RNA sequence: AAAACUUAAAAACAAAAAAUCUGUUCUUAUCAGUUUAAUAUCUGAUACGUCCCCUAUCAGGGGACUAUAUAUUAAACGGAUUUUUGGCACAGGGAGUCGGAGAAGGAGCUUGCUCCGUCCGCUUCAAGCAUCGACCCGUUAUUGCAGUGCGUUCGGGAACGGUGCGCCUCUC
Numbered sequence: 001a002a003a004a005c006u007u008a009a010a011a012a013c014a015a016a017a018a019a020u021c022u023g024u025u026c027u028u029a030u031c032a033g034u035u036u037a038a039u040a041u042c043u044g045a046u047a048c049g050u051c052c053c054c055u056a057u058c059a060g061g062g063g064a065c066u067a068u069a070u071a072u073u074a075a076a077c078g079g080a081u082u083u084u085u086g087g088c089a090c091a092g093g094g095a096g097u098c099g100g101a102g103a104a105g106g107a108g109c110u111u112g113c114u115c116c117g118u119c120c121g122c123u124u125c126a127a128g129c130a131u132c133g134a135c136c137c138g139u140u141a142u143u144g145c146a147g148u149g150c151g152u153u154c155g156g157g158a159a160c161g162g163u164g165c166g167c168c169u170c171u172c
Stems, first nucleotide, its partner, number of pairs: 028047006049065007093125005099119002105116004128165006135157004
This 172-nucleotide RNA sequence from Conger conger belongs to the Rfam family "U2 spliceosomal RNA". Rfam classes the family as a spliceosomal small nuclear RNA. The family is grouped with related families in Rfam's "U2 clan". The match comes from Rfam's covariance-model search (112 bits). A reference for the family is Zwieb (1997), "The uRNA database", Nucleic Acids Res.